[Rfam]
RNA sequence: ACCCCUCGUAUGAUGAUACAUUACGGAUGUAAAAGAGCUUUGCUCAAUUUGUCCAAGAGCGCAUAAACCCAUGUGGAUUUUUCCGUUGCCUUCCUUCUGACUUUCUCGC
Numbered sequence: 001a002c003c004c005c006u007c008g009u010a011u012g013a014u015g016a017u018a019c020a021u022u023a024c025g026g027a028u029g030u031a032a033a034a035g036a037g038c039u040u041u042g043c044u045c046a047a048u049u050u051g052u053c054c055a056a057g058a059g060c061g062c063a064u065a066a067a068c069c070c071a072u073g074u075g076g077a078u079u080u081u082u083c084c085g086u087u088g089c090c091u092u093c094c095u096u097c098u099g100a101c102u103u104u105c106u107c108g109c
Stems, first nucleotide, its partner, number of pairs: 005108001024085004
Small nucleolar RNA Z13/snr52: a 109-nucleotide RNA from Exidia glandulosa. Pairs were carried over by alignment from the consensus structure, which was predicted with PFOLD. Rfam 15.1 lists 1,203 matches to the family in 866 species. Gene Ontology terms of the family: nucleolus and RNA processing.